[Rfam]
nhaA-I RNA: a 61-nucleotide RNA sequence from Croceibacterium mercuriale. A search with the family's covariance model found it, with a score of 58 bits. From the family's description: Acidobacteria, Alphaproteobacteria, Betaproteobacteria and Gammaproteobacteria, Verrucomicrobia, cand. division NC10.

Nucleotides: 061
Stems, first nucleotide, its partner, number of pairs: 005032008042061007
Number, partner (000 for none) and nucleotide at each position: 001000g002000g003000g004000u005032g006031u007030c008029u009028g010027c011026u012025g013000c014000c015000g016000a017000u018000c019000u020000u021000g022000u023000c024000g025012c026011a027010g028009c029008a030007g031006a032005c033000a034000g035000g036000u037000u038000c039000u040000u041000g042061c043060g044059c045058u046057g047056g048055u049000c050000g051000g052000g053000c054000c055048g056047c057046c058045a059044g060043c061042g